Background: The record is a 67-nucleotide sequence from Leptomonas pyrrhocoris, which matches "Trypanosomatid snoRNA TB11Cs5H2" in Rfam. A search with the family's covariance model found it, with a score of 57 bits. On this family, see Myslyuk et al., BMC Bioinformatics 2008: "Psiscan: a computational approach to identify H/ACA-like and AGA-like non-coding RNA in trypanosomatid genomes". The family's RNA type in Rfam is H/ACA-box small nucleolar RNA. Taxonomically the source falls in Leptomonas (Eukaryota, Euglenozoa, Trypanosomatida, Leishmaniinae). Gene Ontology terms of the family: RNA processing and nucleolus. The family has 5 seed sequences and 34 matches in Rfam 15.1.
RNA sequence: AAGUUGCAUCAGUACAGCGACACCGUUUCGCAACCAAUGACGGUGCCUGCUGGCGAUGACAACGAGA
Number, nucleotide and partner (000 for none) at each position: 001a000002a000003g063004u062005u000006g000007c058008a057009u056010c000011a000012g000013u000014a000015c052016a051017g050018c049019g048020a000021c000022a044023c043024c042025g041026u040027u039028u000029c000030g000031c000032a000033a000034c000035c000036a000037a000038u000039g027040a026041c025042g024043g023044u022045g000046c000047c000048u019049g018050c017051u016052g015053g000054c000055g000056a009057u008058g007059a000060c000061a000062a004063c003064g000065a000066g000067a000